A member of the RNA family "terC RNA" from Brevundimonas abyssalis, 56 nucleotides long. NCBI's taxonomy places the organism under Bacteria, Caulobacterales, Caulobacteraceae, Brevundimonas, Brevundimonas abyssalis.

RNA sequence: CCGGCGGGCCGGGCCCCUCUGGCGUCUGAUGGCAGACGUGAUGUCGGACCGCAUCG
Number, nucleotide and partner (000 for none) at each position: 001c000002c000003g000004g000005c000006g050007g049008g000009c047010c046011g045012g044013g000014c000015c000016c000017c000018u000019c000020u000021g000022g039023c038024g037025u036026c035027u034028g033029a000030u000031g000032g000033c028034a027035g026036a025037c024038g023039u022040g000041a000042u000043g000044u012045c011046g010047g009048a000049c007050c006051g000052c000053a000054u000055c000056g000
The family's consensus secondary structure is taken from published work.
It is annotated as a cis-regulatory element.